[Rfam]
Rfam assigns this 125-nucleotide sequence from Candidatus Protofrankia californiensis to the family "TPP riboswitch aptamer (THI element)". A search with the family's covariance model found it, with a score of 56 bits. Lineage of the source: Bacteria > Bacillati > Frankiales > Frankiaceae > Protofrankia.
RNA sequence: CAACCUCAACGCGGGAGCUUCCGACGAAGGAGGCUGAGAGGGCGGCUGGGGUUCGCUCCACGGUGCCGCCGACCGCCAGAACCUGUCCGGAUAAUGCCGGCGUAGGGAGCCGUCACUGUGGUGCU
Numbered sequence: 001c002a003a004c005c006u007c008a009a010c011g012c013g014g015g016a017g018c019u020u021c022c023g024a025c026g027a028a029g030g031a032g033g034c035u036g037a038g039a040g041g042g043c044g045g046c047u048g049g050g051g052u053u054c055g056c057u058c059c060a061c062g063g064u065g066c067c068g069c070c071g072a073c074c075g076c077c078a079g080a081a082c083c084u085g086u087c088c089g090g091a092u093a094a095u096g097c098c099g100g101c102g103u104a105g106g107g108a109g110c111c112g113u114c115a116c117u118g119u120g121g122u123g124c125u
Base pairs, nucleotide, nucleotide: 007112010109011076012075013074014073017034018033019032020031021030041070042069043068044067045066082106083105084104085103087100088099089098090097